[Rfam]
RNA sequence: AUCCUUGCGGAAGGGGCAAUAUCGUUGCAAGUGACGCUUAGCGGAUGCGCGAUAAUUGCUGGUUGAAAACUACUCCAAUUCCCGUCUAUCAUUUCGAAAGAUUUGUUAGCAAUUUUUGUAGCCUCCCGGGG
Numbered sequence: 001a002u003c004c005u006u007g008c009g010g011a012a013g014g015g016g017c018a019a020u021a022u023c024g025u026u027g028c029a030a031g032u033g034a035c036g037c038u039u040a041g042c043g044g045a046u047g048c049g050c051g052a053u054a055a056u057u058g059c060u061g062g063u064u065g066a067a068a069a070c071u072a073c074u075c076c077a078a079u080u081c082c083c084g085u086c087u088a089u090c091a092u093u094u095c096g097a098a099a100g101a102u103u104u105g106u107u108a109g110c111a112a113u114u115u116u117u118g119u120a121g122c123c124u125c126c127c128g129g130g131g
Base pairs, nucleotide, nucleotide: 021053022052023051024050025049027048028047029046035043036042037041084110086109087108088107090105091104094101095100126131
RNA: U4 spliceosomal RNA
Organism: Babesia bovis